[Rfam]
RNA: U4atac minor spliceosomal RNA
Organism: Psophia crepitans
RNA sequence: ACCAUCCUUAUCUGGGGGUUGCGUGGCUGCCCAAUGAGCGCAUGGUGAGGGCAGCACUGUUAACACCCGAAACAACACAGUAGCGCCCGCCUCGCAAUAUUUUUUAUUAUGUUUUUAGGCAUUGGAACA
Numbered sequence: 001a002c003c004a005u006c007c008u009u010a011u012c013u014g015g016g017g018g019u020u021g022c023g024u025g026g027c028u029g030c031c032c033a034a035u036g037a038g039c040g041c042a043u044g045g046u047g048a049g050g051g052c053a054g055c056a057c058u059g060u061u062a063a064c065a066c067c068c069g070a071a072a073c074a075a076c077a078c079a080g081u082a083g084c085g086c087c088c089g090c091c092u093c094g095c096a097a098u099a100u101u102u103u104u105u106a107u108u109a110u111g112u113u114u115u116u117a118g119g120c121a122u123u124g125g126a127a128c129a
Stems, first nucleotide, its partner, number of pairs: 006018004021060003026055007038046002089120004094115001097110003101106001